[Rfam]
RNA sequence: AGGGCGUAUCCCGAAAAGCCCUUAUAAAACGAGUAGGGA
Numbered sequence: 001a002g003g004g005c006g007u008a009u010c011c012c013g014a015a016a017a018g019c020c021c022u023u024a025u026a027a028a029a030c031g032a033g034u035a036g037g038g039a
Base pairs, nucleotide, nucleotide: 002021003020004019005018010038011037012036
Notes: A member of the RNA family "DUF805b RNA", 39 nucleotides long. Rfam classes the family as a cis-regulatory element. The sequence is in the family's curated seed alignment.